[Rfam]
RNA sequence: ACGACCUUACUUGAACAGGAUCUGUUCUAUAGGAUCGUACUGUUGCAUCUUUGAUUAAUAAGAAGGCAAGUACUUAAACCUGGUUGAUGAGAAUUUGACCUGUGGGCCAGAGCGUGAUUUAACGGCCAGGACUUUGCCUUGGUGCAUUGUCUGGAGCUGCAGAUGAUCGUUCUUGGCCAGGCUUAAUGUCUGGCUAGGGUGGCCUACAGGCUGUUUGACAGGUU
Numbered sequence: 001a002c003g004a005c006c007u008u009a010c011u012u013g014a015a016c017a018g019g020a021u022c023u024g025u026u027c028u029a030u031a032g033g034a035u036c037g038u039a040c041u042g043u044u045g046c047a048u049c050u051u052u053g054a055u056u057a058a059u060a061a062g063a064a065g066g067c068a069a070g071u072a073c074u075u076a077a078a079c080c081u082g083g084u085u086g087a088u089g090a091g092a093a094u095u096u097g098a099c100c101u102g103u104g105g106g107c108c109a110g111a112g113c114g115u116g117a118u119u120u121a122a123c124g125g126c127c128a129g130g131a132c133u134u135u136g137c138c139u140u141g142g143u144g145c146a147u148u149g150u151c152u153g154g155a156g157c158u159g160c161a162g163a164u165g166a167u168c169g170u171u172c173u174u175g176g177c178c179a180g181g182c183u184u185a186a187u188g189u190c191u192g193g194c195u196a197g198g199g200u201g202g203c204c205u206a207c208a209g210g211c212u213g214u215u216u217g218a219c220a221g222g223u224u
Stems, first nucleotide, its partner, number of pairs: 001038002003035001005033003013027006043069004048064001050062004078223005099210011111171004123159004127154001129152004135146003173197010